The family of this 133-nucleotide sequence from Cervus elaphus is "Small nucleolar RNA SNORA69". The organism belongs to Cervus elaphus, within Eukaryota. Rfam's curators write: U69 is a member of the H/ACA class of small nucleolar RNAs (snoRNAs) which act as guides in the the modification of uridines to pseudouridines. It scores 135 bits against the family's covariance model. Gene Ontology terms of the family: nucleolus and RNA processing. Pairs were carried over by alignment from the consensus structure, which was predicted with PFOLD. By type it is an H/ACA-box small nucleolar RNA.
RNA sequence: UAAGCAGGCUGCAAUUACAGUGCUUUCUUUUGUGGAAGUACUGACAUUAUCCUGCUGAAAGAAAAUCUGUGUUGAUUGUUUUUGAUUCUGCCAUUUAUGGGGGUAAAAUCAUGACAGAUUGACAUGAACAGUU
Numbered sequence: 001u002a003a004g005c006a007g008g009c010u011g012c013a014a015u016u017a018c019a020g021u022g023c024u025u026u027c028u029u030u031u032g033u034g035g036a037a038g039u040a041c042u043g044a045c046a047u048u049a050u051c052c053u054g055c056u057g058a059a060a061g062a063a064a065a066u067c068u069g070u071g072u073u074g075a076u077u078g079u080u081u082u083u084g085a086u087u088c089u090g091c092c093a094u095u096u097a098u099g100g101g102g103g104u105a106a107a108a109u110c111a112u113g114a115c116a117g118a119u120u121g122a123c124a125u126g127a128a129c130a131g132u133u
Stems, first nucleotide, its partner, number of pairs: 003056006018043009068126010083111005089105004094100001